[Rfam]
RNA sequence: AGCCUAAACCUUCACCGGCAUGGCUGAAAAUACUAUUCAGGGCAGUAAGCUCUUCGUCAGAACCUGAAUAGUCGUGUGGGGAAACCCACAUGGGGGUCCAAAAGACCUC
Number, nucleotide and partner (000 for none) at each position: 001a025002g024003c023004c022005u000006a000007a000008a000009c018010c017011u000012u000013c000014a000015c000016c000017g010018g009019c000020a000021u000022g004023g003024c002025u001026g000027a000028a000029a000030a000031u000032a000033c071034u070035a069036u068037u067038c066039a065040g064041g063042g000043c000044a000045g000046u060047a000048a000049g057050c056051u000052c000053u000054u000055c000056g050057u049058c000059a000060g046061a000062a000063c041064c040065u039066g038067a037068a036069u035070a034071g033072u000073c092074g091075u090076g089077u088078g087079g086080g085081g000082a000083a000084a000085c080086c079087c078088a077089c076090a075091u074092g073093g109094g108095g107096g106097u105098c104099c000100a000101a000102a000103a000104g098105a097106c096107c095108u094109c093
This 109-nucleotide RNA belongs to the Rfam family "LOOT RNA". Pairs were carried over by alignment from the consensus structure, which is taken from published work. It is one of the family's seed sequences.